The family of this 315-nucleotide RNA from Astyanax mexicanus is "Nuclear RNase P". NCBI's taxonomy places the organism under Eukaryota, Eumetazoa, Craniata, Teleostomi, Astyanax. The family's RNA type in Rfam is ribozyme. The family has 116 seed sequences and 3,848 matches in Rfam 15.1.
[Rfam]
RNA sequence: GUGGGAGGAAGCUCACUCCAGAGGUCACAAACUGAGUGUCCAUCAAACUCCACCACAACCUCGGGGAAGGUCUGAGAACAAAGAAGCCCAAUCACUGCCCUCGCAGGGUGUCACCUGAUCCAGGUGAGUGAGGAACCACAGAGAAGCUGAUGCUGAUGGAGGUUCAGGUAGGAGAAAAUCGGGUGGUGCAGGAACAGCACUGCUGAUGGAGACGAACCGACACCGGCUUGGAAGAAUCACGGCUGGAAACAGAGUUCAAUGUGUGAGCUGGAGUUCACCCUCCAGAACCCAAUUCCAGGACUACUCUCCUCUCAC
Numbered sequence: 001g002u003g004g005g006a007g008g009a010a011g012c013u014c015a016c017u018c019c020a021g022a023g024g025u026c027a028c029a030a031a032c033u034g035a036g037u038g039u040c041c042a043u044c045a046a047a048c049u050c051c052a053c054c055a056c057a058a059c060c061u062c063g064g065g066g067a068a069g070g071u072c073u074g075a076g077a078a079c080a081a082a083g084a085a086g087c088c089c090a091a092u093c094a095c096u097g098c099c100c101u102c103g104c105a106g107g108g109u110g111u112c113a114c115c116u117g118a119u120c121c122a123g124g125u126g127a128g129u130g131a132g133g134a135a136c137c138a139c140a141g142a143g144a145a146g147c148u149g150a151u152g153c154u155g156a157u158g159g160a161g162g163u164u165c166a167g168g169u170a171g172g173a174g175a176a177a178a179u180c181g182g183g184u185g186g187u188g189c190a191g192g193a194a195c196a197g198c199a200c201u202g203c204u205g206a207u208g209g210a211g212a213c214g215a216a217c218c219g220a221c222a223c224c225g226g227c228u229u230g231g232a233a234g235a236a237u238c239a240c241g242g243c244u245g246g247a248a249a250c251a252g253a254g255u256u257c258a259a260u261g262u263g264u265g266a267g268c269u270g271g272a273g274u275u276c277a278c279c280c281u282c283c284a285g286a287a288c289c290c291a292a293u294u295c296c297a298g299g300a301c302u303a304c305u306c307u308c309c310u311c312u313c314a315c
Base pairs, nucleotide, nucleotide: 001315002314003313004312007309008308009307012267013266014265015264016263018261021062022061023060024059034050035049036048037047039045072299073298074295075294076293085244086243087242088241096110097109098108099107100106111127112126113125114124115123116122128240129239130238131237146227147226148225268285269284270283271282272281273280

About this RNA:
Ribonuclease P (RNase P) is a ubiquitous endoribonuclease, found in archaea, bacteria and eukarya as well as chloroplasts and mitochondria. Its best characterised activity is the generation of mature 5'-ends of tRNAs by cleaving the 5'-leader elements of precursor-tRNAs. Cellular RNase Ps are ribonucleoproteins. RNA from bacterial RNase Ps retains its catalytic activity in the absence of the protein subunit, i.e. it is a ribozyme. Isolated eukaryotic and archaeal RNase P RNA has not been shown to retain its catalytic function, but is still essential for the catalytic activity of the holoenzyme. Although the archaeal and eukaryotic holoenzyme s have a much greater protein content than the bacterial ones, the RNA cores from all the three lineages are homologous -- helices corresponding to P1, P2, P3, P4, and P10/11 are common to all cellular RNase P RNAs. Yet, there is considerable sequence variation, particularly among the eukaryotic RNAs.